Bacterial RNase P class A: a 417-nucleotide sequence from Uliginosibacterium sp. TH139. The organism belongs to Uliginosibacterium, within Bacteria. Rfam describes the family as follows. Ribonuclease P (RNase P) is a ubiquitous endoribonuclease, found in archaea, bacteria and eukarya as well as chloroplasts and mitochondria. The family's RNA type in Rfam is ribozyme.
RNA sequence: GAAGUUCGUCAGGCAGUCGCUGUGUGCUUCGGCGCAUGGAGGAAAGUCCGGGCCCCGCAGGGCAGGAUGCCGGCUAACGGCCGGGCGCCGUGAGGCGACGGAAAGUGCAACAGAAAACAUACCGCCGAUGGCUCCGCAAGGAGAUCAGGCAAGGUUGAAAUGGUGUCAAGCCGAGCGUGAGCGAGGUUUGGCGCAUUGCGCAAGCAGUGCGGGGUAAGAGCCCACCGCAGUUCCUGGUAACAGGGCUGGCUAGGUAAACCCCAUCCGGGGCAAGGCCAAAUAGGGGGGCGUUGAUGUGGCCCGCAGAGCCCCCGGGUAGGCUGCUAGAGCGGCACGGUAACGUGUCGCCCAGAGGAAUGACUGCCCCGUCGGCGCAAGCCGGCGCGACAGAACCCGGCUUAUCGACGAACUUCCCCC
Numbered sequence: 001g002a003a004g005u006u007c008g009u010c011a012g013g014c015a016g017u018c019g020c021u022g023u024g025u026g027c028u029u030c031g032g033c034g035c036a037u038g039g040a041g042g043a044a045a046g047u048c049c050g051g052g053c054c055c056c057g058c059a060g061g062g063c064a065g066g067a068u069g070c071c072g073g074c075u076a077a078c079g080g081c082c083g084g085g086c087g088c089c090g091u092g093a094g095g096c097g098a099c100g101g102a103a104a105g106u107g108c109a110a111c112a113g114a115a116a117a118c119a120u121a122c123c124g125c126c127g128a129u130g131g132c133u134c135c136g137c138a139a140g141g142a143g144a145u146c147a148g149g150c151a152a153g154g155u156u157g158a159a160a161u162g163g164u165g166u167c168a169a170g171c172c173g174a175g176c177g178u179g180a181g182c183g184a185g186g187u188u189u190g191g192c193g194c195a196u197u198g199c200g201c202a203a204g205c206a207g208u209g210c211g212g213g214g215u216a217a218g219a220g221c222c223c224a225c226c227g228c229a230g231u232u233c234c235u236g237g238u239a240a241c242a243g244g245g246c247u248g249g250c251u252a253g254g255u256a257a258a259c260c261c262c263a264u265c266c267g268g269g270g271c272a273a274g275g276c277c278a279a280a281u282a283g284g285g286g287g288g289c290g291u292u293g294a295u296g297u298g299g300c301c302c303g304c305a306g307a308g309c310c311c312c313c314g315g316g317u318a319g320g321c322u323g324c325u326a327g328a329g330c331g332g333c334a335c336g337g338u339a340a341c342g343u344g345u346c347g348c349c350c351a352g353a354g355g356a357a358u359g360a361c362u363g364c365c366c367c368g369u370c371g372g373c374g375c376a377a378g379c380c381g382g383c384g385c386g387a388c389a390g391a392a393c394c395c396g397g398c399u400u401a402u403c404g405a406c407g408a409a410c411u412u413c414c415c416c417c
Stems, first nucleotide, its partner, number of pairs: 001413010011402001012365007020039008044400003048397005053270004060302004065266005070084005085099001086097004100261002105259002107255002122154002124150003130145001132143004162226004227250001228248004233244004274322004284313006295305003329348008

The base pairs follow the family's consensus structure, which is taken from published work.